[Rfam]
Rfam assigns this 98-nucleotide RNA sequence from Delphinapterus leucas to the family "mir-544 microRNA precursor family". The literature on the family includes a 2010 paper in Genes Dev by Chiang et al., "Mammalian microRNAs: experimental evaluation of novel and previously annotated genes". It scores 75 bits against the family's covariance model. Its family is annotated with miRNA-mediated post-transcriptional gene silencing and RISC complex in the Gene Ontology. Taxonomically the source falls in Delphinapterus (Eukaryota, Teleostomi, Artiodactyla, Cetacea).
RNA sequence: AUCACCUGGGGAUCCUGUUGAAAUGCAGAUUCUGAUUCAGUAGAUCUAGGAUGACGCCUGAAAUUCUGCAUUUCUAACAAGUUCCCAGGUGAUAUCCA
Numbered sequence: 001a002u003c004a005c006c007u008g009g010g011g012a013u014c015c016u017g018u019u020g021a022a023a024u025g026c027a028g029a030u031u032c033u034g035a036u037u038c039a040g041u042a043g044a045u046c047u048a049g050g051a052u053g054a055c056g057c058c059u060g061a062a063a064u065u066c067u068g069c070a071u072u073u074c075u076a077a078c079a080a081g082u083u084c085c086c087a088g089g090u091g092a093u094a095u096c097c098a
Base pairs, nucleotide, nucleotide: 003091004090005089009085010084011083014081016079017078018077019076020075021073022072023071025069026068027067028066029065031063033061